The record is an 85-nucleotide RNA from Lactuca sativa, which matches "Small nucleolar RNA Z199" in Rfam. It is annotated as a C/D-box small nucleolar RNA. Its family is annotated with nucleolus and RNA processing in the Gene Ontology. On this family, see Chen et al., Nucleic Acids Res 2003: "The high diversity of snoRNAs in plants: identification and comparative study of 120 snoRNA genes from Oryza sativa". Rfam's curators write: snoZ199 is a C/D box small nucleolar RNA, which acts as a methylation guide RNA for sites on 18S and 25S rRNA. Rice snoZ199 is reported to be homologous to Arabidopsis snoR13.
RNA sequence: CGUCAAGUGAUGAGAGAAAUAACUGCAACAAAAUGAUCGAACUUUGUGUUCGUGAUUACCUAUAGUAUUUAAGUCUCUGAUGUUG
Numbered sequence: 001c002g003u004c005a006a007g008u009g010a011u012g013a014g015a016g017a018a019a020u021a022a023c024u025g026c027a028a029c030a031a032a033a034u035g036a037u038c039g040a041a042c043u044u045u046g047u048g049u050u051c052g053u054g055a056u057u058a059c060c061u062a063u064a065g066u067a068u069u070u071a072a073g074u075c076u077c078u079g080a081u082g083u084u085g
Stems, first nucleotide, its partner, number of pairs: 001085002004082002038052005